[Rfam]
RNA sequence: UUUGCAAGUGAUGAUAAAAGAGAUGGGGACAUGGAAAUCCUUUCUGAGAAAAAAUGAAUGUUGAUUCGUCUUUGGAAUCUCUGUGAUGCAUA
Dot-bracket structure: ..((((................................................................................))))..
Shown here is a 92-nucleotide RNA from Papaver somniferum, a member of the family "Small nucleolar RNA R44/J54/Z268 family". Clan: SNORD74 clan. The match comes from Rfam's covariance-model search (61 bits).